[Rfam]
RNA sequence: GACAAACAGUGUGAAAGACACUGUCGCCGAAAGUCCAAGGGUUCCUGCGUAAAGUUAAUCUCCGCAGGGUUAGCCGGCCCCUAAGGCGAGGCCGAAAGGCGUAGUCGAUGGGAAUGAGGUGAAUAUUCCUCAGCCAGUUGGUAGUGACGGAUCGCGUACGCUGUCAGAUCUUAUUGGAUUGAUCUGGCUUCCAAGCGGUUCCAGGAAAUAGCUCCAACAUUAGACCGUACCCUAAACCGACACAGGUGGACUGGUAGAGUAUACCAAGGCGCU
Dot-bracket structure: .....((((((.......))))))((((....((((..((...((((((...((.....)).))))))......(((..((...(((.(.(((....))).).)))...))...(((((........)))))..(.(..((.(((...((((..(((..(..((((((((..........))))))))..)...))))))).........)))))..)....).)))..)).....((......)).)))).((((.....))))..))))..
RNA: Bacterial large subunit ribosomal RNA, nucleotides 1321 to 1593
Organism: Allobosea sp. Root381